Bacterial RNase P class A: a 389-nucleotide sequence from Glaciecola punicea. Rfam links the family to the GO terms dimeric ribonuclease P complex, tRNA processing and ribonuclease P activity. By type it is a ribozyme. A search with the family's covariance model found it, with a score of 321 bits.

[Rfam]
RNA sequence: AGAGUUGGCCAGACAAUCGCUGCGAGUAGCCGGUAAUGAAAAUUAUUGACUAUUAGGGGAGGAAAGUCCGGGCUCCACAGGGCAGGGUGCCAGAUAACGUCUGGGCGGCGCGAGCCGACGACAAGUGCAGCAGAGAGAAGACCGCCUGCACCGCGUAAGUGGCUCAGGUAAGGGUGAAAGGGUGCGGUAAGAGCGCACCGCAUUGCUGGCAACAGUAUAUGGCGAGGUAAACUCCACUCGGAGCAAGACCAAAUAGGUUCCCUUAUGGCGCGGCCCGCGUUGGGAACGGGUAGGUUGCUUGAGCUAUUAAGCGAUUAAUAGCCUAGACGAAUGAUUGUCAUUCUUUGAAAGAAGUCUACAGAACCCGGCUUAUGCGGCCAACUCUACUU
Numbered sequence: 001a002g003a004g005u006u007g008g009c010c011a012g013a014c015a016a017u018c019g020c021u022g023c024g025a026g027u028a029g030c031c032g033g034u035a036a037u038g039a040a041a042a043u044u045a046u047u048g049a050c051u052a053u054u055a056g057g058g059g060a061g062g063a064a065a066g067u068c069c070g071g072g073c074u075c076c077a078c079a080g081g082g083c084a085g086g087g088u089g090c091c092a093g094a095u096a097a098c099g100u101c102u103g104g105g106c107g108g109c110g111c112g113a114g115c116c117g118a119c120g121a122c123a124a125g126u127g128c129a130g131c132a133g134a135g136a137g138a139a140g141a142c143c144g145c146c147u148g149c150a151c152c153g154c155g156u157a158a159g160u161g162g163c164u165c166a167g168g169u170a171a172g173g174g175u176g177a178a179a180g181g182g183u184g185c186g187g188u189a190a191g192a193g194c195g196c197a198c199c200g201c202a203u204u205g206c207u208g209g210c211a212a213c214a215g216u217a218u219a220u221g222g223c224g225a226g227g228u229a230a231a232c233u234c235c236a237c238u239c240g241g242a243g244c245a246a247g248a249c250c251a252a253a254u255a256g257g258u259u260c261c262c263u264u265a266u267g268g269c270g271c272g273g274c275c276c277g278c279g280u281u282g283g284g285a286a287c288g289g290g291u292a293g294g295u296u297g298c299u300u301g302a303g304c305u306a307u308u309a310a311g312c313g314a315u316u317a318a319u320a321g322c323c324u325a326g327a328c329g330a331a332u333g334a335u336u337g338u339c340a341u342u343c344u345u346u347g348a349a350a351g352a353a354g355u356c357u358a359c360a361g362a363a364c365c366c367g368g369c370u371u372a373u374g375c376g377g378c379c380a381a382c383u384c385u386a387c388u389u
Stems, first nucleotide, its partner, number of pairs: 001385010011373001012339007020059002023056001025054004064371003068368005073243004080276004085239005090104005105119001106117004120234002125232002127228002142173002144169005151162004181199006200223001201221003204217005247296004257287006267281005303322008